A member of the RNA family "mir-2807 microRNA precursor family" from Bombyx mori, 84 nucleotides long. NCBI's taxonomy places the organism under Eukaryota, Metazoa, Hexapoda, Eumetabola, Bombyx. The match comes from Rfam's covariance-model search (63 bits).
[Rfam]
RNA sequence: UUAACUCAAAUUUGUAUGGAGCUGGAACAGCGCCCCUAGCGGCAAACGUAGGCAAACGUUCGAACUGCAUACAAAUUUGCGUAA
Numbered sequence: 001u002u003a004a005c006u007c008a009a010a011u012u013u014g015u016a017u018g019g020a021g022c023u024g025g026a027a028c029a030g031c032g033c034c035c036c037u038a039g040c041g042g043c044a045a046a047c048g049u050a051g052g053c054a055a056a057c058g059u060u061c062g063a064a065c066u067g068c069a070u071a072c073a074a075a076u077u078u079g080c081g082u083a084a
Stems, first nucleotide, its partner, number of pairs: 008078009018068001020066002023063001025061004034052002039047001